[Rfam]
RNA sequence: GCUGGAGGAUCAAGAAGGCAGUGUCUGAUGAAGCAAGACUCUGCUGAUACACUCCUCCUAGAGAAACAGGGUUGGGGAGAGCAGCCCUUGUUAAAGAGCACUGCGGGGCUGACUGAAAAAAAGAAAA
Dot-bracket structure: .((((((((.......(((.(.((((.........)))).).))).......)))))).))..........(.......(((((((((...((........)).))))))).)).....).......
About this RNA:
A member of the RNA family "Small Cajal body specific RNA 4" from Jaculus jaculus, 127 nucleotides long. scaRNAs are a specific class of small nuclear RNAs which localise to the Cajal bodies and guide the modification of RNA polymerase II transcribed spliceosomal RNAs U1, U2, U4, U5 and U12. ACA26 belongs to the H/ACA box class of guide RNAs as it has the predicted hairpin-hinge-hairpin-tail structure, conserved H/ACA-box motifs and is found associated with GAR1. Rfam classes the family as a small Cajal body RNA. On this family, see Darzacq et al., EMBO J 2002: "Cajal body-specific small nuclear RNAs: a novel class of 2'-O-methylation and pseudouridylation guide RNAs". Its Rfam clan is "SCARNA4 clan". The family's consensus secondary structure was predicted with RNAfold. The source organism's lineage runs through Eukaryota, Bilateria, Chordata, Gnathostomata and Jaculus. Its family is annotated with Cajal body, RNA processing and nucleolus in the Gene Ontology.